Record summary
Rfam assigns this 130-nucleotide sequence from Miscanthus lutarioriparius to the family "U11 spliceosomal RNA". It is annotated as a spliceosomal small nuclear RNA. For this family Rfam cites "Evolution of spliceosomal snRNA genes in metazoan animals" (Marz et al., J Mol Evol, 2008). The organism belongs to Miscanthus, within Eukaryota. Rfam links the family to the GO terms U11 snRNP, mRNA 5'-splice site recognition and pre-mRNA 5'-splice site binding. Pairs were carried over by alignment from the consensus structure, which is taken from published work.
RNA sequence: AAAAAGGGCCGGUUGGGUAUUAUAUGCCACAUCCAUCCUCGAUUGAUGGGUGCUGUGUGGCUACUAAGACAUAUGGCCAGCAUAACUUGUUAAAACUGUUAUGGUUGGCUGGAGAUUAUUUGACAAAGGG
Numbered sequence: 001a002a003a004a005a006g007g008g009c010c011g012g013u014u015g016g017g018u019a020u021u022a023u024a025u026g027c028c029a030c031a032u033c034c035a036u037c038c039u040c041g042a043u044u045g046a047u048g049g050g051u052g053c054u055g056u057g058u059g060g061c062u063a064c065u066a067a068g069a070c071a072u073a074u075g076g077c078c079a080g081c082a083u084a085a086c087u088u089g090u091u092a093a094a095a096c097u098g099u100u101a102u103g104g105u106u107g108g109c110u111g112g113a114g115a116u117u118a119u120u121u122g123a124c125a126a127a128g129g130g
Stems, first nucleotide, its partner, number of pairs: 008081002011078002016028004030052008053076007099128002102125001104124005111119001113117001